[Rfam]
RNA sequence: AACAUCUACAAACACCGCCAGCUUAAAAUUACACAUUACUGAUGGCAGUCUUGUUCUUGUAUCAUGACAAGAUUGUUUUCGCGCUGAGCGAAGAUUAGAUAUACCCAUGGCUGGGCGCCCGGCUUUGAAGAGUUCUUCUAACUUUAUUGAAAACUUGGGAAUCAGCAGAGGUUACAUAU
Dot-bracket structure: ...............(((((((.(.........((....))....(((((.(((............))).))))).....).)))).)))............((.(...........((..(.(((..(((((.......))))).....))).)..))........)..)).......
Small nucleolar RNA snR32: a 179-nucleotide RNA sequence from Glutinoglossum americanum.
By type it is an H/ACA-box small nucleolar RNA.
On this family, see Balakin et al., Nucleic Acids Res 1993: "SnR31, snR32, and snR33: three novel, non-essential snRNAs from Saccharomyces cerevisiae".